[Rfam]
RNA sequence: GGAGUUGGUUGCUAGGGUUCCGGCCUUGCCAUUGUGCAGGGUGCUGGUCCGAGAGCGGCCGCUUGCGGGGGAGACAUCCUCGCAGGACACGGCGGGACAAAAGCCCGGGAGAC
Numbered sequence: 001g002g003a004g005u006u007g008g009u010u011g012c013u014a015g016g017g018u019u020c021c022g023g024c025c026u027u028g029c030c031a032u033u034g035u036g037c038a039g040g041g042u043g044c045u046g047g048u049c050c051g052a053g054a055g056c057g058g059c060c061g062c063u064u065g066c067g068g069g070g071g072a073g074a075c076a077u078c079c080u081c082g083c084a085g086g087a088c089a090c091g092g093c094g095g096g097a098c099a100a101a102a103g104c105c106c107g108g109g110a111g112a113c
Stems, first nucleotide, its partner, number of pairs: 007060006015050002020047002022044001023042006062086008088108001090111001094106003